[Rfam]
RNA: Glycine riboswitch aptamer
RNA sequence: AUGAUCGAUGCGGGAGAGCCUCGGCGCGUGACGCCGGGCACCGAAGGAGCAAGCCUCCCCGCCAAUCUCUCAGGUACUCGUACCGCCUCGAUCGG
Dot-bracket structure: .....(((.((((......((((...........)))).(((((..(((...((......))....))))).))).......)))).))).....
Numbered sequence: 001a002u003g004a005u006c007g008a009u010g011c012g013g014g015a016g017a018g019c020c021u022c023g024g025c026g027c028g029u030g031a032c033g034c035c036g037g038g039c040a041c042c043g044a045a046g047g048a049g050c051a052a053g054c055c056u057c058c059c060c061g062c063c064a065a066u067c068u069c070u071c072a073g074g075u076a077c078u079c080g081u082a083c084c085g086c087c088u089c090g091a092u093c094g095g
Stems, first nucleotide, its partner, number of pairs: 006090003010086004020038004040075003043071002047069003053062002